This 121-nucleotide RNA from Zingiber officinale belongs to the Rfam family "Small nucleolar RNA U19".
Taxonomically the source falls in Zingiber (Eukaryota, commelinids, Zingiberales, Zingiberaceae).
A reference for the family is Marker et al. (2002), "Experimental RNomics: identification of 140 candidates for small non-messenger RNAs in the plant Arabidopsis thaliana", Curr Biol.
The base pairs follow the family's consensus structure, which was predicted with WAR.
The match comes from Rfam's covariance-model search (46 bits).
RNA sequence: AUCUGGCUUAGUUAGGGGGCGCACAGAAAUACUGAAAAGGGAAGUUUUCUCCCUGCAAGACCUUUUGAGGGGAUUCCAUCACUCAUCUCUAUGUGGUAUCCACAAGCAGCCUUGAACAUAU
Dot-bracket structure: ...((.(((......))).))............(((((......)))))......((((.(..((((...((((.((.................)).)))).))))..).)))).......